[Rfam]
RNA sequence: GGCCUUGCCCCAAGGCAGAAAAUACACUUGUUAAGAUUAGCUGGUAGAUGAUGACAGUAGGGUCAUCCGGUCGAAAGUUAGGAUUUUAGAAAAAGCAGACAA
Numbered sequence: 001g002g003c004c005u006u007g008c009c010c011c012a013a014g015g016c017a018g019a020a021a022a023u024a025c026a027c028u029u030g031u032u033a034a035g036a037u038u039a040g041c042u043g044g045u046a047g048a049u050g051a052u053g054a055c056a057g058u059a060g061g062g063u064c065a066u067c068c069g070g071u072c073g074a075a076a077g078u079u080a081g082g083a084u085u086u087u088a089g090a091a092a093a094a095g096c097a098g099a100c101a102a
Stems, first nucleotide, its partner, number of pairs: 006017004039079003047072001050067006
Source information:
This 102-nucleotide RNA sequence belongs to the Rfam family "RT-17 RNA". Rfam classes the family as a small RNA.